[Rfam]
RNA: mir-9/mir-79 microRNA precursor family
RNA sequence: GUGUUUCUGUCUUUGGUUAUCUAGCUGUAUGAGUGUUAAAUACCUGUCAUAAAGCUAGAUAACCGAAAGUAGAAAU
Numbered sequence: 001g002u003g004u005u006u007c008u009g010u011c012u013u014u015g016g017u018u019a020u021c022u023a024g025c026u027g028u029a030u031g032a033g034u035g036u037u038a039a040a041u042a043c044c045u046g047u048c049a050u051a052a053a054g055c056u057a058g059a060u061a062a063c064c065g066a067a068a069g070u071a072g073a074a075a076u
Stems, first nucleotide, its partner, number of pairs: 003076003007072004012067015028051005
Dot-bracket structure: ..(((.((((.(((((((((((((((.(((((..............))))).))))))))))))))).)))).)))